[Rfam]
Nucleotides: 104
Stems, first nucleotide, its partner, number of pairs: 001095009012052006020044001025040003029036002055086004065077005
Number, partner (000 for none) and nucleotide at each position: 001095g002094g003093g004092c005091a006090g007089g008088a009087u010000g011000u012052g013051u014050g015049a016048a017047g018000u019000a020044g021000u022000c023000c024000c025040a026039c027038c028000u029036c030035g031000c032000a033000a034000g035030c036029g037000u038027g039026g040025u041000g042000u043000u044020c045000c046000u047017c048016u049015u050014c051013a052012c053000u054000g055086g056085u057084c058083c059000u060000u061000a062000u063000u064000c065077g066076c067075a068074c069073c070000u071000g072000c073069g074068g075067u076066g077065c078000u079000c080000a081000a082000c083058g084057g085056a086055c087009a088008u089007c090006c091005u092004g093003c094002u095001c096000u097000g098000c099000g100000a101000g102000g103000c104000a
A member of the RNA family "traJ-II RNA" from Halomonas huangheensis, 104 nucleotides long. Lineage of the source: Bacteria > Pseudomonadati > Pseudomonadota > Oceanospirillales > Halomonas. The match comes from Rfam's covariance-model search (100 bits). By type it is a cis-regulatory element. Rfam 15.1 lists 174 matches to the family in 172 species.